[Rfam]
Shown here is an 87-nucleotide RNA from Oxobacter pfennigii, a member of the family "c-di-GMP-I riboswitch aptamer". Rfam 15.1 lists 5,092 matches to the family in 1,772 species. A reference for the family is Weinberg et al. (2007), "Identification of 22 candidate structured RNAs in bacteria using the CMfinder comparative genomics pipeline", Nucleic Acids Res. A search with the family's covariance model found it, with a score of 81 bits.
RNA sequence: AAUUGUAAAUAGCAAACUCAUCGAAAGGUGGAGACGCAAAGCUACGAGUCUAAAGCAGUUUACUGCCAUGACAGUCGGGUUGCCAAU
Numbered sequence: 001a002a003u004u005g006u007a008a009a010u011a012g013c014a015a016a017c018u019c020a021u022c023g024a025a026a027g028g029u030g031g032a033g034a035c036g037c038a039a040a041g042c043u044a045c046g047a048g049u050c051u052a053a054a055g056c057a058g059u060u061u062a063c064u065g066c067c068a069u070g071a072c073a074g075u076c077g078g079g080u081u082g083c084c085a086a087u
Base pairs, nucleotide, nucleotide: 012037013036018031019030020029021028022027040081041080042079043078045077046076047075048072049071050070055066056065057064058063